[Rfam]
RNA sequence: UCGUUCGGGGGAUAGGCGAAGUCGCCUCGCGGCGGCUGGCCGCGAAAUUCUCC
Numbered sequence: 001u002c003g004u005u006c007g008g009g010g011g012a013u014a015g016g017c018g019a020a021g022u023c024g025c026c027u028c029g030c031g032g033c034g035g036c037u038g039g040c041c042g043c044g045a046a047a048u049u050c051u052c053c
Stems, first nucleotide, its partner, number of pairs: 020037007
A member of the RNA family "leuA-Halobacteria RNA", 53 nucleotides long.